msiK RNA: a 58-nucleotide RNA.
Nucleotides: 058
Base pairs, nucleotide, nucleotide: 009050010049011048012047013046015044026043027042028041029040030039031038
Number, partner (000 for none) and nucleotide at each position: 001000g002000g003000c004000u005000a006000a007000c008000g009050c010049c011048u012047u013046a014000c015044c016000c017000u018000c019000g020000g021000a022000a023000c024000g025000u026043c027042g028041g029040g030039c031038a032000c033000g034000u035000a036000c037000c038031u039030g040029c041028c042027c043026g044015g045000a046013u047012a048011a049010g050009g051000a052000a053000g054000a055000a056000a057000u058000a